[Rfam]
RNA sequence: UUCUUAUCCAGAGUGGUGGAGGGACUGGCCCAAAGAAACCCGGCAACCCAAGAGCUAAAUAGCUUUUAUGGUGCUAAAUCCAGCAGGUGAACAAACCUGAUAGAUAAGAG
Numbered sequence: 001u002u003c004u005u006a007u008c009c010a011g012a013g014u015g016g017u018g019g020a021g022g023g024a025c026u027g028g029c030c031c032a033a034a035g036a037a038a039c040c041c042g043g044c045a046a047c048c049c050a051a052g053a054g055c056u057a058a059a060u061a062g063c064u065u066u067u068a069u070g071g072u073g074c075u076a077a078a079u080c081c082a083g084c085a086g087g088u089g090a091a092c093a094a095a096c097c098u099g100a101u102a103g104a105u106a107a108g109a110g
Stems, first nucleotide, its partner, number of pairs: 001110008013041001015040003021031003025083004042075004047071002050066003079102001084099005